[Rfam]
RNA: c-di-AMP riboswitch aptamer (ydaO/yuaA leader)
RNA sequence: AAUUCACAUCCACUGAUCGCGUGGCAGGAGCGGGGGAACCAGGUAAGUCGCCGACCGGUGAAUCCGGCCGGCUAGGGGUGAAGUCGCGUUCGCGCGGCCGGGCAUCUCCAGCCCGAACCCGACAGCUCACCUCGCAGGCGCCGGAGAGGAAACAC
Numbered sequence: 001a002a003u004u005c006a007c008a009u010c011c012a013c014u015g016a017u018c019g020c021g022u023g024g025c026a027g028g029a030g031c032g033g034g035g036g037a038a039c040c041a042g043g044u045a046a047g048u049c050g051c052c053g054a055c056c057g058g059u060g061a062a063u064c065c066g067g068c069c070g071g072c073u074a075g076g077g078g079u080g081a082a083g084u085c086g087c088g089u090u091c092g093c094g095c096g097g098c099c100g101g102g103c104a105u106c107u108c109c110a111g112c113c114c115g116a117a118c119c120c121g122a123c124a125g126c127u128c129a130c131c132u133c134g135c136a137g138g139c140g141c142c143g144g145a146g147a148g149g150a151a152a153c154a155c
Base pairs, nucleotide, nucleotide: 011140013138014137020027030135031134032133033132034131035130040075076120077119078118084097085096086095087094100114101113102112103111
Dot-bracket structure: ..........(.((.....(......)..((((((....(..................................)(((.....((((......))))..((((.......))))...))).........)))))).)).)...............